[Rfam]
The record is a 77-nucleotide sequence from Alligator mississippiensis, which matches "Mammalian CPEB3 ribozyme" in Rfam. Pairs were carried over by alignment from the consensus structure, which is taken from published work. NCBI's taxonomy places the organism under Eukaryota, Chordata, Vertebrata, Crocodylia, Alligator.

RNA sequence: AGGCACAAGUUGGAGGCCACAGCAGAAGUGCUCGUGGCACGGUCCUGUCAGAUUCCAGCAAAUCUGCAAAUUCUGCU
Numbered sequence: 001a002g003g004c005a006c007a008a009g010u011u012g013g014a015g016g017c018c019a020c021a022g023c024a025g026a027a028g029u030g031c032u033c034g035u036g037g038c039a040c041g042g043u044c045c046u047g048u049c050a051g052a053u054u055c056c057a058g059c060a061a062a063u064c065u066g067c068a069a070a071u072u073c074u075g076c077u
Base pairs, nucleotide, nucleotide: 013045015044016043017042018041021077022076023075024074025073026072027071028040029039030038049066050065051064052063053062054061